[Rfam]
Rfam assigns this 105-nucleotide RNA from Microlunatus parietis to the family "TPP riboswitch aptamer (THI element)". Its family is annotated with thiamine pyrophosphate binding in the Gene Ontology. Rfam 15.1 lists 16,130 matches to the family in 8,693 species. The family's consensus secondary structure is taken from published work. From the family's description: Vitamin B(1) in its active form thiamin pyrophosphate (TPP) is an essential coenzyme that is synthesised by coupling of pyrimidine and thiazole moieties in bacteria.

RNA sequence: GGGGAACGACAGGGGAGCGCCGUAGGGCGCUGAGAGUGCGACAGAUCGCAGACCCUCGAACCUGAUCCGGUUGACACCGGCGUAGGGAGUCGGGCCUUUCUCGAG
Number, nucleotide and partner (000 for none) at each position: 001g000002g000003g000004g000005a000006a000007c092008g091009a090010c089011a056012g055013g054014g053015g000016a000017g030018c029019g028020c027021c026022g000023u000024a000025g000026g021027g020028c019029g018030c017031u000032g000033a000034g000035a000036g000037u050038g049039c048040g047041a046042c000043a000044g000045a000046u041047c040048g039049c038050a037051g000052a000053c014054c013055c012056u011057c000058g000059a000060a000061c086062c085063u084064g083065a000066u000067c080068c079069g078070g077071u000072u000073g000074a000075c000076a000077c070078c069079g068080g067081c000082g000083u064084a063085g062086g061087g000088a000089g010090u009091c008092g007093g000094g000095c000096c000097u000098u000099u000100c000101u000102c000103g000104a000105g000